[Rfam]
RNA sequence: CCGCAUCCGUGUUGCUCGAUCUGUGGCCGAGUAGUUCUGACAUCACUUCCCCGGUGCCAGACCUACUUGGACGCAGAUCAGGCCACACGGCCGCUAAUUG
Number, nucleotide and partner (000 for none) at each position: 001c000002c000003g000004c000005a000006u000007c000008c000009g000010u087011g086012u085013u000014g083015c082016u081017c000018g079019a078020u000021c076022u075023g074024u073025g072026g000027c070028c069029g068030a067031g066032u065033a064034g063035u000036u061037c060038u059039g058040a000041c056042a055043u054044c000045a000046c000047u000048u000049c000050c000051c000052c000053g000054g043055u042056g041057c000058c039059a038060g037061a036062c000063c034064u033065a032066c031067u030068u029069g028070g027071a000072c025073g024074c023075a022076g021077a000078u019079c018080a000081g016082g015083c014084c000085a012086c011087a010088c000089g000090g000091c000092c000093g000094c000095u000096a000097a000098u000099u000100g000
Description: The record is a 100-nucleotide sequence from Cyphomyrmex costatus, which matches "mraW RNA" in Rfam. The match comes from Rfam's covariance-model search (52 bits). Rfam classes the family as a cis-regulatory element. The organism belongs to Cyphomyrmex, within Eukaryota. The base pairs follow the family's consensus structure, which is taken from published work.